[Rfam]
Rfam assigns this 138-nucleotide RNA from Cytobacillus horneckiae to the family "c-di-AMP riboswitch aptamer (ydaO/yuaA leader)". Rfam describes the family as follows. This family represents a conserved RNA structure found upstream of the ydaO and yuaA genes in Bacillus subtilis and related genes in other bacteria. A search with the family's covariance model found it, with a score of 104 bits.

RNA sequence: AUUCUUAAUUCGCUAAAUCUUUGAGCGGGGGAACCAAUUUUGUGACAAAGUCACUUGGGGUGAAUCCUUUAUAAGGUAGGGCUACUCUCAUGGCCCGAAUCCGACAGCUAACCUCGUAAGCGUUAAGGGAGAGGAUGG
Numbered sequence: 001a002u003u004c005u006u007a008a009u010u011c012g013c014u015a016a017a018u019c020u021u022u023g024a025g026c027g028g029g030g031g032a033a034c035c036a037a038u039u040u041u042g043u044g045a046c047a048a049a050g051u052c053a054c055u056u057g058g059g060g061u062g063a064a065u066c067c068u069u070u071a072u073a074a075g076g077u078a079g080g081g082c083u084a085c086u087c088u089c090a091u092g093g094c095c096c097g098a099a100u101c102c103g104a105c106a107g108c109u110a111a112c113c114u115c116g117u118a119a120g121c122g123u124u125a126a127g128g129g130a131g132a133g134g135a136u137g138g
Stems, first nucleotide, its partner, number of pairs: 011122004018024002025117006035057002058102003066076004079096004